[Rfam]
RNA sequence: UCUUCAUGCUAGGGGUGCCUGCGGUAACAGGCUGAGAUUACACCCUUAACACCUGAAUCCGGGUAAUACCGGCGGAGGGAAGCUGUAUAUCGAGGAA
Numbered sequence: 001u002c003u004u005c006a007u008g009c010u011a012g013g014g015g016u017g018c019c020u021g022c023g024g025u026a027a028c029a030g031g032c033u034g035a036g037a038u039u040a041c042a043c044c045c046u047u048a049a050c051a052c053c054u055g056a057a058u059c060c061g062g063g064u065a066a067u068a069c070c071g072g073c074g075g076a077g078g079g080a081a082g083c084u085g086u087a088u089a090u091c092g093a094g095g096a097a
Stems, first nucleotide, its partner, number of pairs: 008083003011046004016040001017032005052078003059072004
Dot-bracket structure: .......(((((((.((((((......))))).......)..)))).....(((....((((......))))...)))..)))..............
RNA: TPP riboswitch aptamer (THI element)
Organism: Calothrix sp. 336/3